Small nucleolar RNA SNORA38: a 127-nucleotide RNA sequence from Myotis brandtii.
[Rfam]
RNA sequence: ACCUUACAAAGGCGUGUCUGUGGUUCCCUGUCUUUGGACACGUAAGAACUUGAGGCAAAGAAAUGUGGACUUAGAAGUCUGCAGCCAGCUUGCUCCCUGCAGGCUCAAGAUCAACCAUCCCACAUAU
Numbered sequence: 001a002c003c004u005u006a007c008a009a010a011g012g013c014g015u016g017u018c019u020g021u022g023g024u025u026c027c028c029u030g031u032c033u034u035u036g037g038a039c040a041c042g043u044a045a046g047a048a049c050u051u052g053a054g055g056c057a058a059a060g061a062a063a064u065g066u067g068g069a070c071u072u073a074g075a076a077g078u079c080u081g082c083a084g085c086c087a088g089c090u091u092g093c094u095c096c097c098u099g100c101a102g103g104c105u106c107a108a109g110a111u112c113a114a115c116c117a118u119c120c121c122a123c124a125u126a127u
Stems, first nucleotide, its partner, number of pairs: 002055004013042007022028002067120003071117001087105007

ACA38 is a member of the H/ACA class of snoRNA that guide the sites of modification of uridines to pseudouridines.
By type it is an H/ACA-box small nucleolar RNA.
NCBI's taxonomy places the organism under Eukaryota, Eumetazoa, Teleostomi, Yangochiroptera, Myotis.
The family has 25 seed sequences and 628 matches in Rfam 15.1.
It scores 135 bits against the family's covariance model.